Rfam assigns this 165-nucleotide sequence from Apostichopus japonicus to the family "U1 spliceosomal RNA".
For this family Rfam cites "The uRNA database" (Zwieb, Nucleic Acids Res, 1997).
By type it is a spliceosomal small nuclear RNA.
The source organism's lineage runs through Eukaryota, Opisthokonta, Bilateria, Aspidochirotida and Apostichopus.
RNA sequence: AUACUUACCUGGCGCAGGGAUUUCCGUGAUCAUGACGGCGGAGCCCCCAGGGUGAGGCCCGACCAUUGCACUUUCGGUUGGGUUGACCCCUGCGAUUCUUUCAAACGUAAAGAACUCGGGCGUAUAAUUUCUGGUAGCGGAGGACUGCGUUCGCGCUAUCCUCCU
Numbered sequence: 001a002u003a004c005u006u007a008c009c010u011g012g013c014g015c016a017g018g019g020a021u022u023u024c025c026g027u028g029a030u031c032a033u034g035a036c037g038g039c040g041g042a043g044c045c046c047c048c049a050g051g052g053u054g055a056g057g058c059c060c061g062a063c064c065a066u067u068g069c070a071c072u073u074u075c076g077g078u079u080g081g082g083u084u085g086a087c088c089c090c091u092g093c094g095a096u097u098c099u100u101u102c103a104a105a106c107g108u109a110a111a112g113a114a115c116u117c118g119g120g121c122g123u124a125u126a127a128u129u130u131c132u133g134g135u136a137g138c139g140g141a142g143g144a145c146u147g148c149g150u151u152c153g154c155g156c157u158a159u160c161c162u163c164c165u
Stems, first nucleotide, its partner, number of pairs: 012123004017047003021043001023042005049091004054087001056084003060080005093118003096114003100110002139164006147156003